Shown here is a 250-nucleotide RNA from Legionella longbeachae, a member of the family "Group II catalytic intron D1-D4-6". The pairing is the family consensus, mapped onto this sequence. The family has 174 seed sequences and 1,617 matches in Rfam 15.1. The organism belongs to Legionella longbeachae, within Bacteria. For this family Rfam cites "The ins and outs of group II introns" (Bonen and Vogel, Trends Genet, 2001).

Nucleotides: 250
Base pairs, nucleotide, nucleotide: 012036013035014034015033018031019030020029038090040088041087044085045084046083047082048080049079050075051074052073053072054071055070058067060065136241137240138239139238140237141236154235156233157232158231159230160186161185165180166179167178168177191229192228193227195225196224197223198222199221200220201219
Number, partner (000 for none) and nucleotide at each position: 001000a002000a003000a004000g005000u006000c007000c008000u009000g010000u011000c012036g013035u014034a015033g016000a017000a018031g019030g020029g021000g022000a023000a024000c025000c026000g027000a028000u029020c030019c031018c032000a033015c034014u035013a036012u037000g038090u039000a040088g041087u042000g043000a044085g045084u046083c047082u048080u049079g050075c051074g052073u053072u054071g055070a056000c057000g058067u059000a060065g061000g062000u063000a064000a065060c066000g067058a068000a069000a070055u071054c072053a073052a074051c075050g076000a077000a078000g079049c080048g081000u082047a083046g084045a085044c086000a087041a088040c089000g090038a091000a092000a093000u094000u095000a096000c097000c098000g099000a100000g101000c102000c103000g104000a105000a106000a107000u108000c109000c110000g111000a112000g113000a114000a115000c116000g117000c118000a119000u120000a121000g122000g123000g124000u125000g126000a127000a128000c129000g130000a131000a132000a133000u134000u135000a136241g137240c138239c139238c140237c141236g142000a143000a144000a145000g146000a147000a148000c149000g150000a151000a152000g153000c154235g155000c156233g157232a158231g159230a160186g161185c162000a163000g164000a165180g166179g167178g168177u169000u170000u171000u172000g173000a174000a175000c176000g177168g178167c179166c180165c181000g182000c183000a184000a185161g186160c187000a188000a189000c190000a191229g192228a193227u194000a195225g196224a197223u198222a199221c200220a201219g202000g203000a204000a205000c206000u207000a208000a209000a210000u211000c212000g213000g214000g215000a216000a217000c218000u219201c220200u221199g222198u223197a224196u225195c226000a227193a228192u229191c230159u231158c232157u233156c234000a235154c236141c237140g238139g239138g240137g241136u242000u243000g244000u245000a246000a247000a248000c249000g250000u